[Rfam]
RNA sequence: GACACCCUUUUCACCUUGCCAAUUGGACAUAUGUCUUUAUUGGUCAUUCAAGUGGGACAAAGGAGAUAUUCUUUUGAAACUCAAGCAGACUAGGUGUUUGUCUUGUAAGCUGUCAGAGGAAACAAAU
Numbered sequence: 001g002a003c004a005c006c007c008u009u010u011u012c013a014c015c016u017u018g019c020c021a022a023u024u025g026g027a028c029a030u031a032u033g034u035c036u037u038u039a040u041u042g043g044u045c046a047u048u049c050a051a052g053u054g055g056g057a058c059a060a061a062g063g064a065g066a067u068a069u070u071c072u073u074u075u076g077a078a079a080c081u082c083a084a085g086c087a088g089a090c091u092a093g094g095u096g097u098u099u100g101u102c103u104u105g106u107a108a109g110c111u112g113u114c115a116g117a118g119g120a121a122a123c124a125a126a127u
Stems, first nucleotide, its partner, number of pairs: 032059005040051004069120006082105001083103001085101006

This 127-nucleotide sequence from Vicugna pacos belongs to the Rfam family "Small nucleolar RNA SNORA27". Clan: SNORA27 clan. Rfam 15.1 lists 819 matches to the family in 543 species. The base pairs follow the family's consensus structure. It is annotated as an H/ACA-box small nucleolar RNA. ACA27 is a member of the H/ACA class of snoRNA that guide the sites of modification of uridines to pseudouridines.